[Rfam]
RNA sequence: UGGAAGUGAUGAAAUAGAGAUAAUUGGAUGUCUCUCUGAAUGGAGUGUGUGUGAAUUUAAACCAAGUCAGGCUGGGGGUGGGGGGUGGGGAAUGCGUGUGUGCGUGCGGACGUAUAGAAAAGGCUUUAAAUGGGGGCACUGAUAAUGCAGUGCUGAUUCCGGAGUGCAUCUGAGGCAUGUUGUUAGAUUCUGGGGUGCCACUUUACAACAUUGCCAAUGAUUAAAGCCCAAAACAAGCCCACCAGGACAAGCCUGGGCAUCCUAAAUCUCUAACAGGUUCAUUAAUGAAAGUGAUCCUGUGAUCUGAUCUGA
Numbered sequence: 001u002g003g004a005a006g007u008g009a010u011g012a013a014a015u016a017g018a019g020a021u022a023a024u025u026g027g028a029u030g031u032c033u034c035u036c037u038g039a040a041u042g043g044a045g046u047g048u049g050u051g052u053g054a055a056u057u058u059a060a061a062c063c064a065a066g067u068c069a070g071g072c073u074g075g076g077g078g079u080g081g082g083g084g085g086u087g088g089g090g091a092a093u094g095c096g097u098g099u100g101u102g103c104g105u106g107c108g109g110a111c112g113u114a115u116a117g118a119a120a121a122g123g124c125u126u127u128a129a130a131u132g133g134g135g136g137c138a139c140u141g142a143u144a145a146u147g148c149a150g151u152g153c154u155g156a157u158u159c160c161g162g163a164g165u166g167c168a169u170c171u172g173a174g175g176c177a178u179g180u181u182g183u184u185a186g187a188u189u190c191u192g193g194g195g196u197g198c199c200a201c202u203u204u205a206c207a208a209c210a211u212u213g214c215c216a217a218u219g220a221u222u223a224a225a226g227c228c229c230a231a232a233a234c235a236a237g238c239c240c241a242c243c244a245g246g247a248c249a250a251g252c253c254u255g256g257g258c259a260u261c262c263u264a265a266a267u268c269u270c271u272a273a274c275a276g277g278u279u280c281a282u283u284a285a286u287g288a289a290a291g292u293g294a295u296c297c298u299g300u301g302a303u304c305u306g307a308u309c310u311g312a
Stems, first nucleotide, its partner, number of pairs: 001311004178210006185203001186199001188197001190195001